[Rfam]
RNA sequence: UGCAUGCAUGACUGUAACCUGCUUUGGAUAAAAGCGUCUGCUAAAUGGUGUACA
Numbered sequence: 001u002g003c004a005u006g007c008a009u010g011a012c013u014g015u016a017a018c019c020u021g022c023u024u025u026g027g028a029u030a031a032a033a034g035c036g037u038c039u040g041c042u043a044a045a046u047g048g049u050g051u052a053c054a
Stems, first nucleotide, its partner, number of pairs: 013043001014041003020036006
UnaL2 LINE 3' element: a 54-nucleotide RNA sequence from Salmo salar. It is annotated as a cis-regulatory element.